[Rfam]
RNA: mir-8834 microRNA precursor family
Organism: Canis lupus
RNA sequence: AGGAGGAACAACCACAGUGGCGGCGUCCAGCUCUGGAGCCCUGGAUUCAGCUCCCGCAGUAAUGGAGCUCUCCGUCUGCAGGGCCUGGAUGCUCCGGGGCGGG
Numbered sequence: 001a002g003g004a005g006g007a008a009c010a011a012c013c014a015c016a017g018u019g020g021c022g023g024c025g026u027c028c029a030g031c032u033c034u035g036g037a038g039c040c041c042u043g044g045a046u047u048c049a050g051c052u053c054c055c056g057c058a059g060u061a062a063u064g065g066a067g068c069u070c071u072c073c074g075u076c077u078g079c080a081g082g083g084c085c086u087g088g089a090u091g092c093u094c095c096g097g098g099g100c101g102g103g
Stems, first nucleotide, its partner, number of pairs: 002095004007090001009087002012083002019076005025070001029069006041059003